[Rfam]
The family of this 277-nucleotide RNA from Homarus americanus is "Nuclear RNase P".
On this family, see Frank and Pace, Annu Rev Biochem 1998: "Ribonuclease P: unity and diversity in a tRNA processing ribozyme".
The family's RNA type in Rfam is ribozyme.
The organism belongs to Homarus, within Eukaryota.
RNA sequence: GGCAGCACAAGCUCACUCUAGGGGAUAAUUUAUCCCCUGGGAAGGUCUGAGAGAGAGGUGUAGGAUGCUCUAGCAGGGCAGCCUCUGAGAAGAGGAACAGGACAACAGACAAGCCCCUGGCUGGUAAUGGAUCCAGGACACCUUGCAUUGGUCCUCUUUACAAGGUGGAGAUUAUCUUGCCAUCCUUGGUUGGGAGUCCUGUAGCCAGCUUAAUUAAGUGUGAUGAGUGAGGUGGCCACUUCAGGUCAUAACUCAAUUCAGACUAGUCUGUGCUGCU
Numbered sequence: 001g002g003c004a005g006c007a008c009a010a011g012c013u014c015a016c017u018c019u020a021g022g023g024g025a026u027a028a029u030u031u032a033u034c035c036c037c038u039g040g041g042a043a044g045g046u047c048u049g050a051g052a053g054a055g056a057g058g059u060g061u062a063g064g065a066u067g068c069u070c071u072a073g074c075a076g077g078g079c080a081g082c083c084u085c086u087g088a089g090a091a092g093a094g095g096a097a098c099a100g101g102a103c104a105a106c107a108g109a110c111a112a113g114c115c116c117c118u119g120g121c122u123g124g125u126a127a128u129g130g131a132u133c134c135a136g137g138a139c140a141c142c143u144u145g146c147a148u149u150g151g152u153c154c155u156c157u158u159u160a161c162a163a164g165g166u167g168g169a170g171a172u173u174a175u176c177u178u179g180c181c182a183u184c185c186u187u188g189g190u191u192g193g194g195a196g197u198c199c200u201g202u203a204g205c206c207a208g209c210u211u212a213a214u215u216a217a218g219u220g221u222g223a224u225g226a227g228u229g230a231g232g233u234g235g236c237c238a239c240u241u242c243a244g245g246u247c248a249u250a251a252c253u254c255a256a257u258u259c260a261g262a263c264u265a266g267u268c269u270g271u272g273c274u275g276c277u
Stems, first nucleotide, its partner, number of pairs: 001277004007271003012231007020038005047261005057206003066080005082095005097202007116189002232249006